[Rfam]
RNA: Small nucleolar RNA Z13/snr52
RNA sequence: GCCCUUCAUGAUGAACUAUUUCGGAUGUAAAACUUUACUUGUCUGAAAAGCGCAAACAAACAAUGUUGAGAUUUCCGUUGCCUUCCUUCUGAUCAAUGGC
Numbered sequence: 001g002c003c004c005u006u007c008a009u010g011a012u013g014a015a016c017u018a019u020u021u022c023g024g025a026u027g028u029a030a031a032a033c034u035u036u037a038c039u040u041g042u043c044u045g046a047a048a049a050g051c052g053c054a055a056a057c058a059a060a061c062a063a064u065g066u067u068g069a070g071a072u073u074u075c076c077g078u079u080g081c082c083u084u085c086c087u088u089c090u091g092a093u094c095a096a097u098g099g100c
Stems, first nucleotide, its partner, number of pairs: 003099002022077004